[Rfam]
RNA: Group II catalytic intron D1-D4-2
RNA sequence: GAAGGUGGGCCCUUCGAAGUCGGCUUUCAGGAGCGGGCUUCAAACCACCCCAAGCUGCGUUGGUAAAGAGCCAAGGUAGUGAGCGUUGGGGUCAAAACCGCGAGAGAACAUCUCGGGUAGGU
Numbered sequence: 001g002a003a004g005g006u007g008g009g010c011c012c013u014u015c016g017a018a019g020u021c022g023g024c025u026u027u028c029a030g031g032a033g034c035g036g037g038c039u040u041c042a043a044a045c046c047a048c049c050c051c052a053a054g055c056u057g058c059g060u061u062g063g064u065a066a067a068g069a070g071c072c073a074a075g076g077u078a079g080u081g082a083g084c085g086u087u088g089g090g091g092u093c094a095a096a097a098c099c100g101c102g103a104g105a106g107a108a109c110a111u112c113u114c115g116g117g118u119a120g121g122u
Stems, first nucleotide, its partner, number of pairs: 001015005016041006023034004046121001048091006054080002057077002061073004097118003100114001102112001